[Rfam]
RNA sequence: AGCCUUUGUGUUGCCCAUUCACUUUUGGAAACUAGCAGAUGUGAUAUCAAAAAAGCAUAAAUUAAACUCUUUGCCGCCAUUUUCUGCCCUAGAAAUUUGGUAUCUUUGGUGUAGGAGAUGCAUAAGGUAUAGUU
Numbered sequence: 001a002g003c004c005u006u007u008g009u010g011u012u013g014c015c016c017a018u019u020c021a022c023u024u025u026u027g028g029a030a031a032c033u034a035g036c037a038g039a040u041g042u043g044a045u046a047u048c049a050a051a052a053a054a055g056c057a058u059a060a061a062u063u064a065a066a067c068u069c070u071u072u073g074c075c076g077c078c079a080u081u082u083u084c085u086g087c088c089c090u091a092g093a094a095a096u097u098u099g100g101u102a103u104c105u106u107u108g109g110u111g112u113a114g115g116a117g118a119u120g121c122a123u124a125a126g127g128u129a130u131a132g133u134u
Base pairs, nucleotide, nucleotide: 002056004055005054006053007052009049010048012046013045015043016041017040018039019038022035023034068127069126070125071124072122073121074120077117082116083115084114085113086112087111088109089108092104093103